[Rfam]
RNA sequence: CUGCUCGCAACGCUCUUCUGUUAACGUCAGGCAAAUUAAUCCACGACCAUAACGCGCCAUAAAAUUAAUCGCUUCCGGUGUAAUACACUCGGCCGCCAUAAUUA
Dot-bracket structure: ..((.((..(((.(........).))).......((...((...))..))..)).))........((((.((..((((((.....))).)))..))....))))
Vibrio RNA AS9: a 104-nucleotide sequence from Aliidiomarina taiwanensis. It scores 67 bits against the family's covariance model. The family's RNA type in Rfam is antisense RNA. For this family Rfam cites "Experimental discovery of sRNAs in Vibrio cholerae by direct cloning, 5S/tRNA depletion and parallel sequencing" (Liu et al., Nucleic Acids Res, 2009). From the family's description: Identified by direct cloning an parallel sequencing experiments with 5S/tRNA depletion. Confirmed by Northern blot.